[Rfam]
RNA sequence: AAGUGAAAUGAUGGUUACCAUCUUUCGGGACUGACCUGGAAUGGAGACAAUUUACUCUGCUGAUCACUU
Numbered sequence: 001a002a003g004u005g006a007a008a009u010g011a012u013g014g015u016u017a018c019c020a021u022c023u024u025u026c027g028g029g030a031c032u033g034a035c036c037u038g039g040a041a042u043g044g045a046g047a048c049a050a051u052u053u054a055c056u057c058u059g060c061u062g063a064u065c066a067c068u069u
Stems, first nucleotide, its partner, number of pairs: 001069006

Rfam assigns this 69-nucleotide RNA sequence from Aquarana catesbeiana to the family "Small nucleolar RNA SNORD2". By type it is a C/D-box small nucleolar RNA. Pairs were carried over by alignment from the consensus structure, which was predicted with WAR. On this family, see Zhou et al., Gene 2004: "Identification of a novel box C/D snoRNA from mouse nucleolar cDNA library". A search with the family's covariance model found it, with a score of 85 bits. Its family is annotated with RNA processing and nucleolus in the Gene Ontology.